This 225-nucleotide sequence from Pengzhenrongella frigida belongs to the Rfam family "Actinobacteria sRNA Ms_IGR-5". A reference for the family is Li et al. (2013), "Identification of small RNAs in Mycobacterium smegmatis using heterologous Hfq", RNA.
[Rfam]
RNA sequence: CAUCGAGGAAGGAGGUGGUCCAAAGGUGAGAACUUUUAGGACGCGAGAGGUGACUGUCCGCUAGUCGCCGCGCCUGUUGAUGCAGACGCACCGGACGGACUGCUGAUCCGUUCUCAGGCCGCGCGCGGCCUGCGAAUCCCUGGCAGUCACCGCAGCCCGUGGGAGUCGCGAUCUCGUCCAUCGCGGCAGGGCUCCACCAGGAGCCCAGCCCACGGGCUGUUUGCC
Numbered sequence: 001c002a003u004c005g006a007g008g009a010a011g012g013a014g015g016u017g018g019u020c021c022a023a024a025g026g027u028g029a030g031a032a033c034u035u036u037u038a039g040g041a042c043g044c045g046a047g048a049g050g051u052g053a054c055u056g057u058c059c060g061c062u063a064g065u066c067g068c069c070g071c072g073c074c075u076g077u078u079g080a081u082g083c084a085g086a087c088g089c090a091c092c093g094g095a096c097g098g099a100c101u102g103c104u105g106a107u108c109c110g111u112u113c114u115c116a117g118g119c120c121g122c123g124c125g126c127g128g129c130c131u132g133c134g135a136a137u138c139c140c141u142g143g144c145a146g147u148c149a150c151c152g153c154a155g156c157c158c159g160u161g162g163g164a165g166u167c168g169c170g171a172u173c174u175c176g177u178c179c180a181u182c183g184c185g186g187c188a189g190g191g192c193u194c195c196a197c198c199a200g201g202a203g204c205c206c207a208g209c210c211c212a213c214g215g216g217c218u219g220u221u222u223g224c225c
Stems, first nucleotide, its partner, number of pairs: 014058006059134003064129002067126002072122002153219011167185006